[Rfam]
RNA sequence: CUGGAGGUCUAAGAAAGUAGAGCCAAUGAAGUCAGAGGGGCUCUAUUGAUACUGUCCUCCUACAUUAAAUGGUAGAAAAUAGCUACCAGGCUUCUGCAAGAUGGAGUCAGGACCUCCUUAAUCUACCGACAAUC
Numbered sequence: 001c002u003g004g005a006g007g008u009c010u011a012a013g014a015a016a017g018u019a020g021a022g023c024c025a026a027u028g029a030a031g032u033c034a035g036a037g038g039g040g041c042u043c044u045a046u047u048g049a050u051a052c053u054g055u056c057c058u059c060c061u062a063c064a065u066u067a068a069a070u071g072g073u074a075g076a077a078a079a080u081a082g083c084u085a086c087c088a089g090g091c092u093u094c095u096g097c098a099a100g101a102u103g104g105a106g107u108c109a110g111g112a113c114c115u116c117c118u119u120a121a122u123c124u125a126c127c128g129a130c131a132a133u134c
Base pairs, nucleotide, nucleotide: 003060004059005058006057007056010051011050018045019044020043021042022041023040024039027034028033071127072126073125074124075123076122078119088115089114090113091111092110093109